This 107-nucleotide sequence from Polaribacter sp. MED152 belongs to the Rfam family "6S-Flavo RNA". It is annotated as a small RNA.

RNA sequence: ACUCAACACUAUUCUAUUAUGAAGGAUGAGUCUUAACUACUAAAGCAAGCCACCUUGAGUGGAUCCUUGAACAGUUAGUUAGUCCUAUAUAUGUCAUUAUGGAGUUU
Number, nucleotide and partner (000 for none) at each position: 001a000002c000003u000004c000005a000006a000007c000008a000009c000010u000011a000012u000013u000014c000015u000016a000017u000018u000019a000020u000021g000022a000023a086024g085025g084026a083027u082028g000029a000030g000031u000032c000033u000034u077035a076036a075037c074038u073039a000040c000041u000042a000043a068044a067045g066046c000047a000048a000049g000050c062051c061052a060053c059054c000055u000056u000057g000058a000059g053060u052061g051062g050063a000064u000065c000066c045067u044068u043069g000070a000071a000072c000073a038074g037075u036076u035077a034078g000079u000080u000081a000082g027083u026084c025085c024086u023087a000088u000089a000090u000091a000092u000093g000094u000095c000096a000097u000098u000099a000100u000101g000102g000103a000104g000105u000106u000107u000
The sequence is in the family's curated seed alignment.